[Rfam]
RNA sequence: CCCUUAUUCAGACAGGCGGAGGGAACGGCCCUGUGAAGCCUGGCAACCUGUCCCGCUCACCCCGUGGGACGAGGUGCUAAAUCCGGCGUCCCCGGUUCGUGGCGCGUGACGCGCUGCAACCAACGGGCGGGACGAAAGAUGAGGG
Numbered sequence: 001c002c003c004u005u006a007u008u009c010a011g012a013c014a015g016g017c018g019g020a021g022g023g024a025a026c027g028g029c030c031c032u033g034u035g036a037a038g039c040c041u042g043g044c045a046a047c048c049u050g051u052c053c054c055g056c057u058c059a060c061c062c063c064g065u066g067g068g069a070c071g072a073g074g075u076g077c078u079a080a081a082u083c084c085g086g087c088g089u090c091c092c093c094g095g096u097u098c099g100u101g102g103c104g105c106g107u108g109a110c111g112c113g114c115u116g117c118a119a120c121c122a123a124c125g126g127g128c129g130g131g132a133c134g135a136a137a138g139a140u141g142a143g144g145g
Stems, first nucleotide, its partner, number of pairs: 001145008014041004021031003026085003042078004047074002051068002082137001087134006
A member of the RNA family "SAM riboswitch aptamer (S box leader)", 145 nucleotides long. The literature on the family includes a 2010 paper in J Mol Biol by Montange et al., "Discrimination between closely related cellular metabolites by the SAM-I riboswitch".